[Rfam]
RNA: RNase MRP
RNA sequence: GUCCCCCAGGACGAACGCCAGCUUAGCUCCCUAAGCAGGAAAGUCCCCGGUUCGACUCAGCAAGAAAUUGCACGAGUGGAAACACUUGGUGGGCAUAACGUCUGUUAGUGGCGAGGAUGUUCACUAAGAACUGAGCCGAAGAUGAUUAUGCCUUCAAGAACCCAGAUUAGAGAAUUAUGGCGGAACUCUCUUCACAGAGGAGAACUGAAUGGGGCUUAUGUUCCUGGGGGC
Numbered sequence: 001g002u003c004c005c006c007c008a009g010g011a012c013g014a015a016c017g018c019c020a021g022c023u024u025a026g027c028u029c030c031c032u033a034a035g036c037a038g039g040a041a042a043g044u045c046c047c048c049g050g051u052u053c054g055a056c057u058c059a060g061c062a063a064g065a066a067a068u069u070g071c072a073c074g075a076g077u078g079g080a081a082a083c084a085c086u087u088g089g090u091g092g093g094c095a096u097a098a099c100g101u102c103u104g105u106u107a108g109u110g111g112c113g114a115g116g117a118u119g120u121u122c123a124c125u126a127a128g129a130a131c132u133g134a135g136c137c138g139a140a141g142a143u144g145a146u147u148a149u150g151c152c153u154u155c156a157a158g159a160a161c162c163c164a165g166a167u168u169a170g171a172g173a174a175u176u177a178u179g180g181c182g183g184a185a186c187u188c189u190c191u192u193c194a195c196a197g198a199g200g201a202g203a204a205c206u207g208a209a210u211g212g213g214g215c216u217u218a219u220g221u222u223c224c225u226g227g228g229g230g231c
Stems, first nucleotide, its partner, number of pairs: 003230009016182004022035005041217003045214004060071004072087001074085001076083002089155001091153001093151006099144004109138004119131004186202004191197001